[Rfam]
RNA sequence: GUGGGCUACGGGGACAUGGUUCCGAUGACGGUUGGGGGAAAGCUGGUUGGGUCCAUGUGCGCCAUUGCGGGUGUGCUCACCAUCUCCUUGCCGGUUCCCGUCAUCGUUUCAAAC
Dot-bracket structure: ((..(..((((.(((..((.(...............((.(........((...........))..........).))................).))..))).))))..)..))
Rfam assigns this 114-nucleotide sequence from Poecilia reticulata to the family "Potassium channel RNA editing signal". This family represents a group of sequences related to the human potassium channel Kv1.1 hairpin element which directs the efficient modification of an adenosine to inosine by an adenosine deaminase acting on RNA (ADAR). The ADAR modification causes an isoleucine/valine recoding event which lies in the ion-conducting pore of the potassium channel. It is thought that this editing event targets the process of fast inactivation and allows a more rapid recovery from inactivation at negative potentials. Rfam classes the family as a cis-regulatory element.